[Rfam]
RNA: Xanthomonadaceae sRNA sX5
RNA sequence: GGUCCUCCGUAUGCUCCCCUCCCCUUACGGUUUUGGACUGGCGGGCUUU
Numbered sequence: 001g002g003u004c005c006u007c008c009g010u011a012u013g014c015u016c017c018c019c020u021c022c023c024c025u026u027a028c029g030g031u032u033u034u035g036g037a038c039u040g041g042c043g044g045g046c047u048u049u
Stems, first nucleotide, its partner, number of pairs: 007044004013038001015037003023030002